[Rfam]
RNA: Nuclear RNase P
RNA sequence: ACAGGCGUUAGCUCGGCACUCUCUGUGGACACACGUGAUUAUCAUACAUCCAGGGGGGAAGGUCUGAGGAACCAGCGGGGGCUGAAAAGCCGGCCGUAGCACAUACGGAAAACGCCCAACAGAAAACAGCUACGCAUGAAAGUGGCGUUAUGGUCAGGGCUACGCCUAAAGUCAAAUUGCCGAGGCUCUUGUAACUCAAUUCAGACUACUCAAUGCCUGU
Numbered sequence: 001a002c003a004g005g006c007g008u009u010a011g012c013u014c015g016g017c018a019c020u021c022u023c024u025g026u027g028g029a030c031a032c033a034c035g036u037g038a039u040u041a042u043c044a045u046a047c048a049u050c051c052a053g054g055g056g057g058g059a060a061g062g063u064c065u066g067a068g069g070a071a072c073c074a075g076c077g078g079g080g081g082c083u084g085a086a087a088a089g090c091c092g093g094c095c096g097u098a099g100c101a102c103a104u105a106c107g108g109a110a111a112a113c114g115c116c117c118a119a120c121a122g123a124a125a126a127c128a129g130c131u132a133c134g135c136a137u138g139a140a141a142g143u144g145g146c147g148u149u150a151u152g153g154u155c156a157g158g159g160c161u162a163c164g165c166c167u168a169a170a171g172u173c174a175a176a177u178u179g180c181c182g183a184g185g186c187u188c189u190u191g192u193a194a195c196u197c198a199a200u201u202c203a204g205a206c207u208a209c210u211c212a213a214u215g216c217c218u219g220u
Base pairs, nucleotide, nucleotide: 001220002219003218004217007214008213009212012184013183014182015181016180017179018178021055022054023053024052025051037050038049039048040046064204065203066202067201068200071154072153073152080091081090082089083088094108095107096106097105098104111149112148113147114146115145116144129135130134185192186191